[Rfam]
Guanidine-II riboswitch aptamer (mini-ykkC): a 49-nucleotide sequence from Pseudomonas paraeruginosa. Rfam describes the family as follows. Simpler in structure and has fewer highly conserved nucleotide positions than the ykkC-yxkD leader.
RNA sequence: GAAGCGGGACGACCCGUUUUCCUUCUUUCAUUGCGCGGGGACGACCCUG
Numbered sequence: 001g002a003a004g005c006g007g008g009a010c011g012a013c014c015c016g017u018u019u020u021c022c023u024u025c026u027u028u029c030a031u032u033g034c035g036c037g038g039g040g041a042c043g044a045c046c047c048u049g
Stems, first nucleotide, its partner, number of pairs: 001020008036049005